[Rfam]
This 125-nucleotide RNA from Polaribacter sp. KT25b belongs to the Rfam family "SAM riboswitch aptamer (S box leader)". Lineage of the source: Bacteria > Pseudomonadati > Flavobacteriales > Flavobacteriaceae > Polaribacter.
RNA sequence: AUGUUAUCAAGAAAGGUGAAGGGAUUAGACCCGUUGAAGCCUUAGCAACCCUUUUCGUGAGGAAAAGAAGGUGCUAAAUUCUACUUAAUUUCAGAUUCAUUUAUCAGAAAUUGGAUAGAUAACCC
Numbered sequence: 001a002u003g004u005u006a007u008c009a010a011g012a013a014a015g016g017u018g019a020a021g022g023g024a025u026u027a028g029a030c031c032c033g034u035u036g037a038a039g040c041c042u043u044a045g046c047a048a049c050c051c052u053u054u055u056c057g058u059g060a061g062g063a064a065a066a067g068a069a070g071g072u073g074c075u076a077a078a079u080u081c082u083a084c085u086u087a088a089u090u091u092c093a094g095a096u097u098c099a100u101u102u103a104u105c106a107g108a109a110a111u112u113g114g115a116u117a118g119a120u121a122a123c124c125c
Stems, first nucleotide, its partner, number of pairs: 003123006013043005021032003026083004044075004049071002051067004079117001084114002087111001089109003